Rfam assigns this 76-nucleotide sequence from Indicator maculatus to the family "Small nucleolar RNA SNORD19". On this family, see Huttenhofer et al., EMBO J 2001: "RNomics: an experimental approach that identifies 201 candidates for novel, small, non-messenger RNAs in mouse". It scores 54 bits against the family's covariance model. The organism belongs to Indicator, within Eukaryota. The family is grouped with related families in Rfam's "SNORD19 clan". Rfam classes the family as a C/D-box small nucleolar RNA.

Nucleotides: 076
Stems, first nucleotide, its partner, number of pairs: 001067004
Number, partner (000 for none) and nucleotide at each position: 001067g002066a003065g004064c005000u006000a007000u008000g009000a010000a011000g012000a013000a014000a015000a016000u017000u018000u019000c020000a021000a022000a023000g024000g025000a026000a027000u028000c029000u030000g031000a032000g033000a034000u035000u036000c037000c038000a039000c040000u041000g042000a043000a044000g045000a046000c047000a048000c049000a050000a051000g052000a053000u054000c055000c056000a057000a058000c059000u060000c061000u062000g063000a064004g065003c066002u067001c068000a069000c070000u071000g072000c073000c074000c075000c076000u